Rfam assigns this 172-nucleotide RNA from Oceanobacillus bengalensis to the family "glmS glucosamine-6-phosphate activated ribozyme aptamer".
The family's RNA type in Rfam is riboswitch.
RNA sequence: GUUCAACUUAAAGCGCCAGAACUAUUUUCGUUCGAAAAGGAGAAAUAGUUGACGAGGUGGAGGUCAUCGAAUAUUUCGGCGGAUACCUCCCGAUUGAACAUCUCAGUCGUUUACGUUUUAUUCUAAAACAAUAAGGUGACUUAUUGGACAAAGGGAUAAAAUAAGAUGUCAU
Number, nucleotide and partner (000 for none) at each position: 001g000002u000003u000004c000005a000006a000007c000008u000009u000010a000011a000012a000013g000014c000015g000016c000017c000018a000019g000020a050021a049022c048023u047024a046025u045026u044027u043028u000029c039030g000031u000032u000033c000034g000035a000036a000037a000038a000039g029040g000041a000042g000043a027044a026045a025046u024047a023048g022049u021050u020051g000052a000053c000054g000055a000056g000057g000058u000059g090060g089061a088062g087063g086064u000065c000066a000067u079068c078069g077070a076071a000072u000073a000074u000075u000076u070077c069078g068079g067080c000081g000082g000083a000084u000085a000086c063087c062088u061089c060090c059091c109092g108093a107094u106095u105096g104097a000098a000099c000100a000101u000102c000103u000104c096105a095106g094107u093108c092109g091110u000111u000112u000113a000114c000115g162116u161117u160118u159119u158120a157121u156122u000123c000124u000125a000126a000127a000128a000129c146130a145131a144132u143133a142134a141135g140136g000137u000138g000139a000140c135141u134142u133143a132144u131145u130146g129147g000148a000149c000150a000151a000152a000153g000154g000155g000156a121157u120158a119159a118160a117161a116162u115163a000164a000165g000166a000167u000168g000169u000170c000171a000172u000
The family's consensus secondary structure is taken from published work. Lineage of the source: Bacteria > Bacillati > Bacilli > Bacillaceae > Oceanobacillus.